This 35-nucleotide RNA sequence from Mesobacillus campisalis belongs to the Rfam family "Ribosomal protein L19 leader".
The source organism's lineage runs through Bacteria, Bacillati, Bacillota, Caryophanales and Mesobacillus.
Its family is annotated with regulation of gene expression in the Gene Ontology.
About the family: This family is a putative r-protein leader autoregulatory structure found in B. subtilis and other low-GC Gram-positive bacteria. It is located in the 5' untranslated regions of mRNAs encoding ribosomal protein L19 (rplS).
For this family Rfam cites "Diverse mechanisms for regulating ribosomal protein synthesis in Escherichia coli" (Zengel and Lindahl, Prog Nucleic Acid Res Mol Biol, 1994).
It is annotated as a cis-regulatory leader.

RNA sequence: ACGAUGUUCCGCUGCACGAGAUGCAAGAGCAUUUG
Numbered sequence: 001a002c003g004a005u006g007u008u009c010c011g012c013u014g015c016a017c018g019a020g021a022u023g024c025a026a027g028a029g030c031a032u033u034u035g
Stems, first nucleotide, its partner, number of pairs: 003033007013025004